RNA: uup RNA
Organism: Enterococcus florum
RNA sequence: AGAAAAGCAGCUCUUAACUUAUGGAUACGAUGAAGCAUUGUUAAGAGC
Numbered sequence: 001a002g003a004a005a006a007g008c009a010g011c012u013c014u015u016a017a018c019u020u021a022u023g024g025a026u027a028c029g030a031u032g033a034a035g036c037a038u039u040g041u042u043a044a045g046a047g048c
Stems, first nucleotide, its partner, number of pairs: 011047005017041002